This 109-nucleotide RNA from Nicotiana tabacum belongs to the Rfam family "MIR403 microRNA precursor family". The source organism's lineage runs through Eukaryota, Pentapetalae, lamiids, Nicotianeae and Nicotiana. Pairs were carried over by alignment from the consensus structure, which was predicted with WAR. The family has 13 seed sequences and 215 matches in Rfam 15.1.

[Rfam]
RNA sequence: GCGUAUUUCACGUUUGUGCGUGAAUCUGACAACCCUUUUUUAUCAUUAAAUCUAUUUUUAUUUCAUGGGUUGUGUUUGUUAGAUUCACGCACAAACUCGUAAUAUGUCU
Numbered sequence: 001g002c003g004u005a006u007u008u009c010a011c012g013u014u015u016g017u018g019c020g021u022g023a024a025u026c027u028g029a030c031a032a033c034c035c036u037u038u039u040u041u042a043u044c045a046u047u048a049a050a051u052c053u054a055u056u057u058u059u060a061u062u063u064c065a066u067g068g069g070u071u072g073u074g075u076u077u078g079u080u081a082g083a084u085u086c087a088c089g090c091a092c093a094a095a096c097u098c099g100u101a102a103u104a105u106g107u108c109u
Stems, first nucleotide, its partner, number of pairs: 001107003005103003012096015028080003044067001